[Rfam]
RNA: Yersinia sRNA 251
Organism: Gibbsiella quercinecans
RNA sequence: UGUAGGCAUGGAGCGUGCGCUGGCACAGGGCGGAGCGCACACAGUCUUGUUUUUCAAAGCGGAUAAUACCGACCAUCUCGUCUUCUUCGAAGCGUUCAAGCGCAUCGCUAAGACCGGAUUUUACCCCGCGCGGCAGGUCGCACUGGGUGAUAUCCCCGUUGACGAUCACCGUCACGUUCUCACCCAGACGGGUC
Numbered sequence: 001u002g003u004a005g006g007c008a009u010g011g012a013g014c015g016u017g018c019g020c021u022g023g024c025a026c027a028g029g030g031c032g033g034a035g036c037g038c039a040c041a042c043a044g045u046c047u048u049g050u051u052u053u054u055c056a057a058a059g060c061g062g063a064u065a066a067u068a069c070c071g072a073c074c075a076u077c078u079c080g081u082c083u084u085c086u087u088c089g090a091a092g093c094g095u096u097c098a099a100g101c102g103c104a105u106c107g108c109u110a111a112g113a114c115c116g117g118a119u120u121u122u123a124c125c126c127c128g129c130g131c132g133g134c135a136g137g138u139c140g141c142a143c144u145g146g147g148u149g150a151u152a153u154c155c156c157c158g159u160u161g162a163c164g165a166u167c168a169c170c171g172u173c174a175c176g177u178u179c180u181c182a183c184c185c186a187g188a189c190g191g192g193u194c
Base pairs, nucleotide, nucleotide: 002054004052005051006050007049008048015040016039017038018037019036061078062077063076064075067072083112084111088107093102094101095100113193114192115191117189119188120187121186126133127132137166138165139164140163144158145157146156171183172182174180